[Rfam]
RNA sequence: UUCGUCAGGCGCGAUGGAUCUCGCCAGGGCUUGUCCCGAACCGCCACUGACGGCUGAUAGUUCCUGUGUUGAU
Numbered sequence: 001u002u003c004g005u006c007a008g009g010c011g012c013g014a015u016g017g018a019u020c021u022c023g024c025c026a027g028g029g030c031u032u033g034u035c036c037c038g039a040a041c042c043g044c045c046a047c048u049g050a051c052g053g054c055u056g057a058u059a060g061u062u063c064c065u066g067u068g069u070u071g072a073u
Stems, first nucleotide, its partner, number of pairs: 011024003016064003020060002043054003
RNA: Fluoride riboswitch aptamer (crcB RNA motif)